RNA sequence: AUGUGGCACUUUUCGGAUUUCGAGAUUCAAACAAUUCUAUCUUUGACCGUAAAUUUAUCAUAUAUCUUUUAAUUAUUUUGAAUUGCCAAUUAUUGUGACUUAUAGUACUUUUUACGUAGUUUACAAAUAUAUAAAUUUCAUUUCAAAAAAGUUGAAGAUUCCACGCGCAAAUUUCCGGUCAAACUUAAAUUGUUUGACUCUCAAAAAAUAAAAAGUGUCACAUGA
Numbered sequence: 001a002u003g004u005g006g007c008a009c010u011u012u013u014c015g016g017a018u019u020u021c022g023a024g025a026u027u028c029a030a031a032c033a034a035u036u037c038u039a040u041c042u043u044u045g046a047c048c049g050u051a052a053a054u055u056u057a058u059c060a061u062a063u064a065u066c067u068u069u070u071a072a073u074u075a076u077u078u079u080g081a082a083u084u085g086c087c088a089a090u091u092a093u094u095g096u097g098a099c100u101u102a103u104a105g106u107a108c109u110u111u112u113u114a115c116g117u118a119g120u121u122u123a124c125a126a127a128u129a130u131a132u133a134a135a136u137u138u139c140a141u142u143u144c145a146a147a148a149a150a151g152u153u154g155a156a157g158a159u160u161c162c163a164c165g166c167g168c169a170a171a172u173u174u175c176c177g178g179u180c181a182a183a184c185u186u187a188a189a190u191u192g193u194u195u196g197a198c199u200c201u202c203a204a205a206a207a208a209u210a211a212a213a214a215g216u217g218u219c220a221c222a223u224g225a
Stems, first nucleotide, its partner, number of pairs: 001223013015209001018206003022202004027197007036189001038187002042183008051174006059165001061163001064159006076148007084140002094133004100126002103123003107120003
RNA: MIR8007 microRNA precursor family
Organism: Solanum tuberosum